[Rfam]
RNA sequence: AAGCUUGGAGAUGAGGAGCUUGUCUCCUACAUACUAGCGGGUCUCGACGUCGACUUCAACCCGCUGGUGUCCGCUGUUGCUGCGCGUGUUGAACCCAUCUCGGUGGGGGAUCUGUACACGCAAAUGGUCACCUUCGAGC
Numbered sequence: 001a002a003g004c005u006u007g008g009a010g011a012u013g014a015g016g017a018g019c020u021u022g023u024c025u026c027c028u029a030c031a032u033a034c035u036a037g038c039g040g041g042u043c044u045c046g047a048c049g050u051c052g053a054c055u056u057c058a059a060c061c062c063g064c065u066g067g068u069g070u071c072c073g074c075u076g077u078u079g080c081u082g083c084g085c086g087u088g089u090u091g092a093a094c095c096c097a098u099c100u101c102g103g104u105g106g107g108g109g110a111u112c113u114g115u116a117c118a119c120g121c122a123a124a125u126g127g128u129c130a131c132c133u134u135c136g137a138g139c
Base pairs, nucleotide, nucleotide: 004138005137006136007135008134094107095106096105097104098103
The family of this 139-nucleotide RNA sequence from Digitaria exilis is "Small nucleolar RNA Z247". It is annotated as a C/D-box small nucleolar RNA. It scores 55 bits against the family's covariance model. Gene Ontology terms of the family: nucleolus and RNA processing. NCBI's taxonomy places the organism under Eukaryota, Tracheophyta, Panicodae, Anthephorinae, Digitaria.